[Rfam]
RNA sequence: UAAUAGCAAUGAAAAGAGAGGUAUGCGCCAACAUACCUCUCUAGUGUAGAGCGGUUUAAGACGGUGACCUUUUGGAUUAUUUAAAA
Numbered sequence: 001u002a003a004u005a006g007c008a009a010u011g012a013a014a015a016g017a018g019a020g021g022u023a024u025g026c027g028c029c030a031a032c033a034u035a036c037c038u039c040u041c042u043a044g045u046g047u048a049g050a051g052c053g054g055u056u057u058a059a060g061a062c063g064g065u066g067a068c069c070u071u072u073u074g075g076a077u078u079a080u081u082u083a084a085a086a
Base pairs, nucleotide, nucleotide: 022035023034024033025032051065052064054062055061056060
A member of the RNA family "RNA anti-toxin A" from Enterococcus faecalis, 86 nucleotides long. Its family is annotated with negative regulation of translation and mRNA binding in the Gene Ontology. Rfam classes the family as an antitoxin RNA. Lineage of the source: Bacteria > Bacillati > Bacilli > Lactobacillales > Enterococcus faecalis. On this family, see Fozo et al., Nucleic Acids Res 2010: "Abundance of type I toxin-antitoxin systems in bacteria: searches for new candidates and discovery of novel families".